A member of the RNA family "Metazoan signal recognition particle RNA" from Didymodactylos carnosus, 303 nucleotides long. Rfam 15.1 lists 383,523 matches to the family in 1,221 species. Rfam links the family to the GO terms SRP-dependent cotranslational protein targeting to membrane, signal sequence recognition and signal recognition particle, endoplasmic reticulum targeting. A reference for the family is Wild et al. (2002), "Towards the structure of the mammalian signal recognition particle", Curr Opin Struct Biol. Taxonomically the source falls in Didymodactylos (Eukaryota, Protostomia, Gnathifera, Bdelloidea). Rfam describes the family as follows. The signal recognition particle (SRP) is a universally conserved ribonucleoprotein. It is involved in the co-translational targeting of proteins to membranes. The eukaryotic SRP consists of a 300-nucleotide 7S RNA and six proteins: SRPs 72, 68, 54, 19, 14, and 9. Archaeal SRP consists of a 7S RNA and homologues of the eukaryotic SRP19 and SRP54 proteins.

[Rfam]
RNA sequence: GCUGGGAAUAGUGGCGUGUUUCUGUAACUCAAGUUACUUUGAGAGCCGGGUUGUGUUGAAUGGCUUGCGGAUGGGACCACUGUUUGCCGUUGUGUCCUAUGUUGAUCGAGUGUCCGCACUAAUCUCGGCAUCAACAUGGUUUGGUGAGAGGAAUCUAUCAAUACCAGGUUGUCUAAGGAGAGGUGAACCGGUUCAGGCCCGAAAGGGAGCAAAUCAAAGCCUCUAUGUCAAGCGGUAGUGGGAUAGCGCUUGUGAAUAGGCAACGGUAACCAGCCCGUCUAAUACAGUUGGACCACAAUCCUU
Number, nucleotide and partner (000 for none) at each position: 001g046002c045003u044004g023005g022006g021007a020008a019009u018010a017011g000012u000013g000014g000015c000016g000017u010018g009019u008020u007021u006022c005023u004024g000025u000026a000027a000028c043029u042030c041031a000032a000033g000034u000035u000036a000037c000038u000039u000040u000041g030042a029043g028044a003045g002046c001047c000048g301049g300050g299051u298052u297053g296054u295055g294056u000057u292058g000059a000060a000061u290062g289063g288064c287065u286066u000067g000068c000069g280070g279071a278072u277073g276074g275075g274076a000077c000078c000079a000080c273081u272082g271083u000084u269085u268086g267087c266088c265089g264090u263091u262092g261093u000094g000095u000096c260097c259098u258099a257100u256101g000102u254103u000104g000105a000106u000107c252108g251109a250110g249111u248112g247113u246114c242115c241116g000117c240118a239119c238120u237121a236122a000123u000124c232125u231126c000127g229128g228129c227130a226131u225132c171133a170134a169135c168136a000137u166138g165139g164140u163141u000142u161143g000144g159145u000146g000147a156148g155149a154150g000151g000152a000153a000154u149155c148156u147157a000158u000159c144160a000161a142162u000163a140164c139165c138166a137167g000168g135169u134170u133171g132172u178173c177174u000175a000176a000177g173178g172179a224180g223181a222182g221183g220184u219185g000186a000187a000188c000189c000190g215191g214192u213193u212194c000195a000196g000197g000198c207199c206200c205201g000202a000203a000204a000205g200206g199207g198208a000209g000210c000211a000212a193213a192214u191215c190216a000217a000218a000219g184220c183221c182222u181223c180224u179225a131226u130227g129228u128229c127230a000231a125232g124233c000234g000235g000236u121237a120238g119239u118240g117241g115242g114243a000244u000245a000246g113247c112248g111249c110250u109251u108252g107253u000254g102255a000256a100257u099258a098259g097260g096261c092262a091263a090264c089265g088266g087267u086268a085269a084270c000271c082272a081273g080274c075275c074276c073277g072278u071279c070280u069281a000282a000283u000284a000285c000286a065287g064288u063289u062290g061291g000292a057293c000294c055295a054296c053297a052298a051299u050300c049301c048302u000303u000
Record summary: A search with the family's covariance model found it, with a score of 226 bits.